[Rfam]
RNA sequence: GCGGUUCCGGUUCACGUCAGGCCCUCUAUGAGGGCAGCGCUCCAGGCGGGCGCGACGACCCGGCGGCC
Numbered sequence: 001g002c003g004g005u006u007c008c009g010g011u012u013c014a015c016g017u018c019a020g021g022c023c024c025u026c027u028a029u030g031a032g033g034g035c036a037g038c039g040c041u042c043c044a045g046g047c048g049g050g051c052g053c054g055a056c057g058a059c060c061c062g063g064c065g066g067c068c
Base pairs, nucleotide, nucleotide: 003068004067005066007063008062009061010060015057016056017055018054021051022050023049

Notes: The family of this 68-nucleotide RNA is "L31-Actinobacteria ribosomal protein leader". It is annotated as a cis-regulatory leader. Rfam's curators put it in the seed alignment.